Shown here is a 71-nucleotide RNA sequence from Silurus meridionalis, a member of the family "miR-430 microRNA precursor family". Rfam 15.1 lists 24,817 matches to the family in 105 species. NCBI's taxonomy places the organism under Eukaryota, Bilateria, Characiphysae, Siluriformes, Silurus. On this family, see Giraldez et al., Science 2005: "MicroRNAs regulate brain morphogenesis in zebrafish". Pairs were carried over by alignment from the consensus structure, which was predicted with RNAalifold.

RNA sequence: AUUGAUACCUUAACAAUGGCUCCGACCUUGCAUUAAUCAUUUGGUAAGUGCUAUUUGUUGGGGUAGUUUUC
Dot-bracket structure: ...(.((((((.((((.(((.(..(((...............)))..).)))..)))).)))))).)....